[Rfam]
RNA: Streptococcus sRNA SpF59 (ldcC RNA)
RNA sequence: UGACCGCUCUCAUUGAAUUUUAGAUGAUGGUAGAGCUAAGGCCAGCCGGACAGCCGGGUCAAAAGCCGA
Numbered sequence: 001u002g003a004c005c006g007c008u009c010u011c012a013u014u015g016a017a018u019u020u021u022a023g024a025u026g027a028u029g030g031u032a033g034a035g036c037u038a039a040g041g042c043c044a045g046c047c048g049g050a051c052a053g054c055c056g057g058g059u060c061a062a063a064a065g066c067c068g069a
Stems, first nucleotide, its partner, number of pairs: 001061005006036005